msiK RNA: a 57-nucleotide RNA sequence from Schaalia canis. The family's consensus secondary structure is taken from published work. The match comes from Rfam's covariance-model search (61 bits).
RNA sequence: AGGUGACAUCUCUACUACGGAUCGUCCGGCACGUACCUGCCGGUGGAGGGAAUUAAA
Numbered sequence: 001a002g003g004u005g006a007c008a009u010c011u012c013u014a015c016u017a018c019g020g021a022u023c024g025u026c027c028g029g030c031a032c033g034u035a036c037c038u039g040c041c042g043g044u045g046g047a048g049g050g051a052a053u054u055a056a057a
Base pairs, nucleotide, nucleotide: 009049010048011047012046013045014044026043027042028041029040030039031038